[Rfam]
RNA sequence: CCAGUCGGUCGGGCAGCCGCACCGGUCGCGCGAAAGCAAUCCGGUGAGGAAAGUCCGGGCUCCAUGAAAGCACGGUGCCGGGUAACGCCCGGCGGAGGCGACUCUAGGGAAAGUGCCACAGAAAGCAAACCGCCUGACUACGGUCAGGUUAGGGUGAAAGGGUGAGGUAAGAGCUCACCGCGCCUUCAGUAAUGAAGGUGGCAGGGUAAACCCCACCGGGAGCAAAACCGAAUAGGAAUGAUGCGGGCUUCGGCCCAGCCGGCUUUCAGGCCAGUCAUUCGGGUGGGUUGCUAGAGGCAUUCAGCAAUGGGUGCCGCAGAUGAAUGGUUGCCGCGCAAGGCCUCGGUCUUGCCGUACAAAACCCGGCUUACAGACCGACUGGUAUU
Numbered sequence: 001c002c003a004g005u006c007g008g009u010c011g012g013g014c015a016g017c018c019g020c021a022c023c024g025g026u027c028g029c030g031c032g033a034a035a036g037c038a039a040u041c042c043g044g045u046g047a048g049g050a051a052a053g054u055c056c057g058g059g060c061u062c063c064a065u066g067a068a069a070g071c072a073c074g075g076u077g078c079c080g081g082g083u084a085a086c087g088c089c090c091g092g093c094g095g096a097g098g099c100g101a102c103u104c105u106a107g108g109g110a111a112a113g114u115g116c117c118a119c120a121g122a123a124a125g126c127a128a129a130c131c132g133c134c135u136g137a138c139u140a141c142g143g144u145c146a147g148g149u150u151a152g153g154g155u156g157a158a159a160g161g162g163u164g165a166g167g168u169a170a171g172a173g174c175u176c177a178c179c180g181c182g183c184c185u186u187c188a189g190u191a192a193u194g195a196a197g198g199u200g201g202c203a204g205g206g207u208a209a210a211c212c213c214c215a216c217c218g219g220g221a222g223c224a225a226a227a228c229c230g231a232a233u234a235g236g237a238a239u240g241a242u243g244c245g246g247g248c249u250u251c252g253g254c255c256c257a258g259c260c261g262g263c264u265u266u267c268a269g270g271c272c273a274g275u276c277a278u279u280c281g282g283g284u285g286g287g288u289u290g291c292u293a294g295a296g297g298c299a300u301u302c303a304g305c306a307a308u309g310g311g312u313g314c315c316g317c318a319g320a321u322g323a324a325u326g327g328u329u330g331c332c333g334c335g336c337a338a339g340g341c342c343u344c345g346g347u348c349u350u351g352c353c354g355u356a357c358a359a360a361a362c363c364c365g366g367c368u369u370a371c372a373g374a375c376c377g378a379c380u381g382g383u384a385u386u
Stems, first nucleotide, its partner, number of pairs: 001382010011371001012332007020046006051369003055366005060222004070266001073218005078092005093107001094105004108213002113211002115207003130153002132149007161179006180202001181200008226289004236280006261272004296315008
Shown here is a 386-nucleotide RNA sequence from Cohaesibacter marisflavi, a member of the family "Bacterial RNase P class A". A search with the family's covariance model found it, with a score of 319 bits. The base pairs follow the family's consensus structure, which is taken from published work. The family's RNA type in Rfam is ribozyme.